[Rfam]
Shown here is a 90-nucleotide RNA from Branchiostoma belcheri, a member of the family "mir-2060 microRNA precursor family". Rfam 15.1 lists 3,696 matches to the family in 4 species. Rfam links the family to the GO terms RISC complex and miRNA-mediated post-transcriptional gene silencing.
RNA sequence: GCAUGUUUGUGUGUGGAUGGUAUUCAGCACCAGGGACAUGCAUGCUUGUGAGUGGAUGGUGUUCAGCACCAGGGUUAGGUGUAUUUGUGG
Numbered sequence: 001g002c003a004u005g006u007u008u009g010u011g012u013g014u015g016g017a018u019g020g021u022a023u024u025c026a027g028c029a030c031c032a033g034g035g036a037c038a039u040g041c042a043u044g045c046u047u048g049u050g051a052g053u054g055g056a057u058g059g060u061g062u063u064c065a066g067c068a069c070c071a072g073g074g075u076u077a078g079g080u081g082u083a084u085u086u087g088u089g090g
Stems, first nucleotide, its partner, number of pairs: 004081006018071004023066002026063007036049003040045001
A search with the family's covariance model found it, with a score of 64 bits.